[Rfam]
RNA sequence: UGAAUACAAGGGCAAACCUGCCGAAAGGCAGGGACGCAAAGCUUAGGAGUCUACUUCACGCGCGGCGGCAUCGCCGUGAGUGAAAAGGCAGUCCGGCCGCAUGA
Numbered sequence: 001u002g003a004a005u006a007c008a009a010g011g012g013c014a015a016a017c018c019u020g021c022c023g024a025a026a027g028g029c030a031g032g033g034a035c036g037c038a039a040a041g042c043u044u045a046g047g048a049g050u051c052u053a054c055u056u057c058a059c060g061c062g063c064g065g066c067g068g069c070a071u072c073g074c075c076g077u078g079a080g081u082g083a084a085a086a087g088g089c090a091g092u093c094c095g096g097c098c099g100c101a102u103g104a
Base pairs, nucleotide, nucleotide: 012037013036017032018031019030020029021028022027041097042096043095046094047093048092049089050088051087056083057082058081059080

A member of the RNA family "c-di-GMP-I riboswitch aptamer" from Papillibacter cinnamivorans, 104 nucleotides long. It scores 57 bits against the family's covariance model. Lineage of the source: Bacteria > Bacillati > Clostridia > Oscillospiraceae > Papillibacter cinnamivorans.